This 147-nucleotide RNA from Erwinia sp. Leaf53 belongs to the Rfam family "Leucine operon leader".

RNA sequence: CGAGGUCUGAGCCAAUGAUUCGUUCCACCCGCCUACUCGGUCUACUACUAAACGCAUCCUCUUUGCGCGGUAGACUUGUGGGCGGAAUCAAUCACUGAUUCAGACUUGCAAAACCUAAGAAACCCGCGCCAAUGCGCGGGUUUUUUU
Numbered sequence: 001c002g003a004g005g006u007c008u009g010a011g012c013c014a015a016u017g018a019u020u021c022g023u024u025c026c027a028c029c030c031g032c033c034u035a036c037u038c039g040g041u042c043u044a045c046u047a048c049u050a051a052a053c054g055c056a057u058c059c060u061c062u063u064u065g066c067g068c069g070g071u072a073g074a075c076u077u078g079u080g081g082g083c084g085g086a087a088u089c090a091a092u093c094a095c096u097g098a099u100u101c102a103g104a105c106u107u108g109c110a111a112a113a114c115c116u117a118a119g120a121a122a123c124c125c126g127c128g129c130c131a132a133u134g135c136g137c138g139g140g141u142u143u144u145u146u147u
Stems, first nucleotide, its partner, number of pairs: 004106001006104005013097002016094003025085002028082005045073005053067004119144011
NCBI's taxonomy places the organism under Bacteria, Pseudomonadota, Gammaproteobacteria, Erwiniaceae, Erwinia. Rfam's curators write: At least 6 amino acid operons are known to be regulated by attenuation. In each a leader sequence of 150-200 bp is found upstream of the first gene in the operon. This leader sequence can assume two different secondary structures known as the terminator and the anti-terminator structure. For this family Rfam cites "Attenuation in amino acid biosynthetic operons" (Kolter and Yanofsky, Annu Rev Genet, 1982). The family's consensus secondary structure is taken from published work. Rfam links the family to the GO term leucine biosynthetic process. By type it is a cis-regulatory leader.